[Rfam]
RNA sequence: AAAAAGGGCGCUCGUCUUCAGCACAUUCCGUGUUUUACGAGAAAUGGUGCGGACGCAUUAUGCCGUUUGCUCGUUCCUACGCUCGUUGUGGGCGGGGGCGUGCGUCGAAUUGCCGCCUUCGAUGGGUUCAAGCGUGCAUAGUGGGGUAUGGCUUUGCAUAUCCAGUGCGUAAUUUUUGUUUUUGGGGCUAAGGUAGGCUGUACGAUGGAGGCGGCCGG
Numbered sequence: 001a002a003a004a005a006g007g008g009c010g011c012u013c014g015u016c017u018u019c020a021g022c023a024c025a026u027u028c029c030g031u032g033u034u035u036u037a038c039g040a041g042a043a044a045u046g047g048u049g050c051g052g053a054c055g056c057a058u059u060a061u062g063c064c065g066u067u068u069g070c071u072c073g074u075u076c077c078u079a080c081g082c083u084c085g086u087u088g089u090g091g092g093c094g095g096g097g098g099c100g101u102g103c104g105u106c107g108a109a110u111u112g113c114c115g116c117c118u119u120c121g122a123u124g125g126g127u128u129c130a131a132g133c134g135u136g137c138a139u140a141g142u143g144g145g146g147u148a149u150g151g152c153u154u155u156g157c158a159u160a161u162c163c164a165g166u167g168c169g170u171a172a173u174u175u176u177u178g179u180u181u182u183u184g185g186g187g188c189u190a191a192g193g194u195a196g197g198c199u200g201u202a203c204g205a206u207g208g209a210g211g212c213g214g215c216c217g218g
Stems, first nucleotide, its partner, number of pairs: 008168005013055005056143008064134006144163007188218002192216003196212001
Dot-bracket structure: .......((((((((((.................................)))))((((((((((((((...........................................................)))))).))))))))(((((((......))))))))))))...................((..(((.(...............).)))))
A member of the RNA family "U11 spliceosomal RNA" from Drosophila navojoa, 218 nucleotides long. Its Rfam clan is "U1 clan". Its family is annotated with U11 snRNP, pre-mRNA 5'-splice site binding and mRNA 5'-splice site recognition in the Gene Ontology. Rfam classes the family as a spliceosomal small nuclear RNA.